[Rfam]
RNA sequence: GGAGUGGCUCGGAUGGUCGCGGCAGGUUUAACCUGUCGAGGAAAGUCCGGGCUGCACAGGGCAGAGCGCCGGAUAACGUCCGGUGGGGGUGACCCCGGGAAAGUGCCACAGAAAACAGACCGCCGCGGCAUGCCGCGGUAAGGGUGAAACGGUGCGGUAAGAGCGCACCGCCCGGUGCGGUAACGGACCGGGGCACGGUAAACCCCGCUCGCAGCAAGGCCAAAUAGGGAAGCGCCAAACGUGGCCCGCGUUUGCUUCCGGGUAGGCUGCUCGAGCCUGUCAGUAAUGGCAGGCCCAGAUGAAUGACCAUCUCCCCGCUCCGGCGGGAGACAGAACCCGGCUUACAGAGCCACUCCGCAU
Numbered sequence: 001g002g003a004g005u006g007g008c009u010c011g012g013a014u015g016g017u018c019g020c021g022g023c024a025g026g027u028u029u030a031a032c033c034u035g036u037c038g039a040g041g042a043a044a045g046u047c048c049g050g051g052c053u054g055c056a057c058a059g060g061g062c063a064g065a066g067c068g069c070c071g072g073a074u075a076a077c078g079u080c081c082g083g084u085g086g087g088g089g090u091g092a093c094c095c096c097g098g099g100a101a102a103g104u105g106c107c108a109c110a111g112a113a114a115a116c117a118g119a120c121c122g123c124c125g126c127g128g129c130a131u132g133c134c135g136c137g138g139u140a141a142g143g144g145u146g147a148a149a150c151g152g153u154g155c156g157g158u159a160a161g162a163g164c165g166c167a168c169c170g171c172c173c174g175g176u177g178c179g180g181u182a183a184c185g186g187a188c189c190g191g192g193g194c195a196c197g198g199u200a201a202a203c204c205c206c207g208c209u210c211g212c213a214g215c216a217a218g219g220c221c222a223a224a225u226a227g228g229g230a231a232g233c234g235c236c237a238a239a240c241g242u243g244g245c246c247c248g249c250g251u252u253u254g255c256u257u258c259c260g261g262g263u264a265g266g267c268u269g270c271u272c273g274a275g276c277c278u279g280u281c282a283g284u285a286a287u288g289g290c291a292g293g294c295c296c297a298g299a300u301g302a303a304u305g306a307c308c309a310u311c312u313c314c315c316c317g318c319u320c321c322g323g324c325g326g327g328a329g330a331c332a333g334a335a336c337c338c339g340g341c342u343u344a345c346a347g348a349g350c351c352a353c354u355c356c357g358c359a360u
Base pairs, nucleotide, nucleotide: 001356002355003354004353005352006351007350008349009348010347011345012311013310014309015308016307017306018305020038021037022036023035024034025033026032027031043343044342045341047340048339049338050337051336052214053213054212055211059247060246061245062244064210065209066208067207068206069083070082071081072080073079084097085096086095087094088093098205099204103203104202105199106198107197120143121142122139123138124137125136126135127134128133151169152168153167154166155165156164170194171192172191173190174189175188176187178185179184218268219267220266221265228259229258230257231256232255233254238252239251240250241249242248275294276293277292278291279290280289281288282287
A member of the RNA family "Bacterial RNase P class A" from Mariprofundus ferrooxydans, 360 nucleotides long. The family's RNA type in Rfam is ribozyme. The sequence is in the family's curated seed alignment.